[Rfam]
RNA sequence: UUGGCGAGAACCUUGUGAAUCAAGUAGCAUAGUGAUUCACAGGGUUCUCA
Numbered sequence: 001u002u003g004g005c006g007a008g009a010a011c012c013u014u015g016u017g018a019a020u021c022a023a024g025u026a027g028c029a030u031a032g033u034g035a036u037u038c039a040c041a042g043g044g045u046u047c048u049c050a
Stems, first nucleotide, its partner, number of pairs: 006049017
The family of this 50-nucleotide sequence from Scabiosa tschiliensis is "Plastid-ccsA-ndhD-2 3UTR RNA". The family's consensus secondary structure was predicted with LocARNA. The organism belongs to Scabiosa, within Eukaryota. Rfam describes the family as follows. Plastid ccsA-ndhD-2 is a non-coding RNA (ncRNA) recognised in plastids. It was found in the three prime untranslated region (3UTR) of ccsA and ndhD genes, its 3UTR location suggests a role in transcript maturation. Rfam classes the family as a cis-regulatory element.